Rfam assigns this 269-nucleotide RNA sequence from Trematosphaeria pertusa to the family "Fungal signal recognition particle RNA". Rfam links the family to the GO terms SRP-dependent cotranslational protein targeting to membrane, signal sequence recognition, signal recognition particle, plasma membrane targeting and signal recognition particle, endoplasmic reticulum targeting.
RNA sequence: ACCUGUAACGGGUCCUCGCCAGGAGGCUCAUCGUUAUCCACUCGCGCUUCCCAAAUUCAAGCCUUGGCAGGAGCCCAGUUCGAGUCCGGUGGUGUCCGAUUUCAACCCACUCACACAGGUAACUUGUGAUGCUGGGCGGACCUAAGCAAUGAAUACUACAUGACGAGGGAAGAAAUUCUGCAGUCGCGUAUUCACCAUUGGACGGCGGCGCUGGAAUACUCUUGCUUGGGUUGGGAGGUGUGAGUUGGGCUGAGGGGUCGACUGGUUUU
Number, nucleotide and partner (000 for none) at each position: 001a013002c012003c011004u000005g000006u000007a000008a000009c000010g000011g003012g002013u001014c000015c000016u000017c000018g266019c265020c264021a263022g262023g000024a000025g259026g258027c257028u256029c255030a000031u000032c000033g000034u253035u252036a251037u249038c248039c247040a245041c244042u243043c242044g241045c240046g239047c238048u237049u236050c235051c234052c233053a232054a000055a000056u000057u000058c000059a000060a000061g000062c230063c229064u228065u000066g226067g225068c224069a223070g222071g221072a220073g219074c000075c214076c213077a212078g211079u210080u208081c207082g206083a000084g203085u202086c201087c200088g199089g198090u197091g196092g195093u000094g000095u000096c000097c000098g000099a000100u000101u140102u139103c138104a000105a000106c135107c134108c131109a130110c000111u129112c128113a127114c126115a125116c000117a124118g123119g000120u000121a000122a000123c118124u117125u115126g114127u113128g112129a111130u109131g108132c000133u000134g107135g106136g000137c000138g103139g102140a101141c000142c146143u000144a000145a000146g142147c000148a000149a000150u194151g193152a192153a191154u190155a189156c188157u000158a000159c000160a000161u186162g185163a184164c183165g000166a000167g000168g000169g178170a177171a176172g000173a000174a000175a000176u171177u170178c169179u000180g000181c000182a000183g164184u163185c162186g161187c000188g156189u155190a154191u153192u152193c151194a150195c092196c091197a090198u089199u088200g087201g086202a085203c084204g000205g000206c082207g081208g080209c000210g079211c078212u077213g076214g075215a000216a000217u000218a000219c073220u072221c071222u070223u069224g068225c067226u066227u000228g064229g063230g062231u000232u053233g052234g051235g050236a049237g048238g047239u046240g045241u044242g043243a042244g041245u040246u000247g039248g038249g037250c000251u036252g035253a034254g000255g029256g028257g027258u026259c025260g000261a000262c022263u021264g020265g019266u018267u000268u000269u000
A reference for the family is Batey et al. (2001), "Structural and energetic analysis of RNA recognition by a universally conserved protein from the signal recognition particle", J Mol Biol.